[Rfam]
RNA sequence: GGUCAGACUAGGGAGAGCUACCCGAAAAGGCGGAUUACCUACCCGCUCUGUCUGGCUACUUAAUGUAGGU
Numbered sequence: 001g002g003u004c005a006g007a008c009u010a011g012g013g014a015g016a017g018c019u020a021c022c023c024g025a026a027a028a029g030g031c032g033g034a035u036u037a038c039c040u041a042c043c044c045g046c047u048c049u050g051u052c053u054g055g056c057u058a059c060u061u062a063a064u065g066u067a068g069g070u
Stems, first nucleotide, its partner, number of pairs: 001057008011023003029047005037070005
The record is a 70-nucleotide sequence from Endozoicomonas montiporae, which matches "int-alpA RNA" in Rfam. About the family: Acidobacteria (1 example), Planctomycetes (1 example), Proteobacteria. Taxonomically the source falls in Endozoicomonas (Bacteria, Pseudomonadota, Gammaproteobacteria, Endozoicomonadaceae). It is annotated as a small RNA.